Rfam assigns this 196-nucleotide sequence from Pseudomonas sp. GV071 to the family "RgsA sRNA". A reference for the family is Livny et al. (2006), "Identification of 17 Pseudomonas aeruginosa sRNAs and prediction of sRNA-encoding genes in 10 diverse pathogens using the bioinformatic tool sRNAPredict2", Nucleic Acids Res. From the family's description: This small RNA (sRNA) was computationally identified in the genome of the opportunistic pathogen Pseudomonas aeruginosa and its expression verified by northern blot analysis. It scores 158 bits against the family's covariance model.
[Rfam]
RNA sequence: CAACAGCCGCGCCAGUAUUCCAAAUCCGUUUAAGCAGCGGGCCGGCAGCACUGGCAGAUCGGCGAAGUUCACCAAUACUGGUGAGUACUGGCGUGUGGCAUCUCCCCCAAGUGCCCCGCCAGCCAAGGUACCGUGGACUGUGUACCUUGAUUUACUCCUAAUGGUCUUAACCCGGAUUCAUUCCCCCAGAGUCCGG
Numbered sequence: 001c002a003a004c005a006g007c008c009g010c011g012c013c014a015g016u017a018u019u020c021c022a023a024a025u026c027c028g029u030u031u032a033a034g035c036a037g038c039g040g041g042c043c044g045g046c047a048g049c050a051c052u053g054g055c056a057g058a059u060c061g062g063c064g065a066a067g068u069u070c071a072c073c074a075a076u077a078c079u080g081g082u083g084a085g086u087a088c089u090g091g092c093g094u095g096u097g098g099c100a101u102c103u104c105c106c107c108c109a110a111g112u113g114c115c116c117c118g119c120c121a122g123c124c125a126a127g128g129u130a131c132c133g134u135g136g137a138c139u140g141u142g143u144a145c146c147u148u149g150a151u152u153u154a155c156u157c158c159u160a161a162u163g164g165u166c167u168u169a170a171c172c173c174g175g176a177u178u179c180a181u182u183c184c185c186c187c188a189g190a191g192u193c194c195g196g
Base pairs, nucleotide, nucleotide: 039166040165042163088122089121090120094118095117097115099113100112101111124149125148126147127146128145129144130143131142132140172196173195174194175193177191178190179189